The family of this 53-nucleotide sequence from Natrinema versiforme is "leuA-Halobacteria RNA". Rfam's curators put it in the seed alignment. The base pairs follow the family's consensus structure, which is taken from published work.
[Rfam]
RNA sequence: GCACGACGAGGAUAGAGGAAGUCGGGGCGACCCGGCUGGAUGCGAAAUUCUCC
Numbered sequence: 001g002c003a004c005g006a007c008g009a010g011g012a013u014a015g016a017g018g019a020a021g022u023c024g025g026g027g028c029g030a031c032c033c034g035g036c037u038g039g040a041u042g043c044g045a046a047a048u049u050c051u052c053c
Stems, first nucleotide, its partner, number of pairs: 020037007